[Rfam]
RNA sequence: AAAAAGCCCGCUUGUACGUCGACAGAAGCGGGCUUGUGCGGAAAAAGCGCAGGCGGUUGUUCGUAAUUGAAAGACCACCGUUUCGCUUUAGCUGUUUGGGGUUCACGCCGAUGAAGGCCGUGCCCCGCGUCCGCAAGCUGAUCUCAAAUCGACGCAAGUCCCGAUGCUAACACGAUGCGGGCCCAGCCCGCAUCGUGC
Numbered sequence: 001a002a003a004a005a006g007c008c009c010g011c012u013u014g015u016a017c018g019u020c021g022a023c024a025g026a027a028g029c030g031g032g033c034u035u036g037u038g039c040g041g042a043a044a045a046a047g048c049g050c051a052g053g054c055g056g057u058u059g060u061u062c063g064u065a066a067u068u069g070a071a072a073g074a075c076c077a078c079c080g081u082u083u084c085g086c087u088u089u090a091g092c093u094g095u096u097u098g099g100g101g102u103u104c105a106c107g108c109c110g111a112u113g114a115a116g117g118c119c120g121u122g123c124c125c126c127g128c129g130u131c132c133g134c135a136a137g138c139u140g141a142u143c144u145c146a147a148a149u150c151g152a153c154g155c156a157a158g159u160c161c162c163g164a165u166g167c168u169a170a171c172a173c174g175a176u177g178c179g180g181g182c183c184c185a186g187c188c189c190g191c192a193u194c195g196u197g198c
Base pairs, nucleotide, nucleotide: 004035005034006033007032008031009030010029011028012027015024037156038155039154040153046087047086048085052083053082056079058077088141089140090139091138092137093136099126100125101124127134128133171197172196173195174194175193176192177191178190179189180188181187
Notes: Rfam assigns this 198-nucleotide RNA from Caballeronia telluris to the family "Burkholderia sRNA Bp2_Cand287_SIPHT".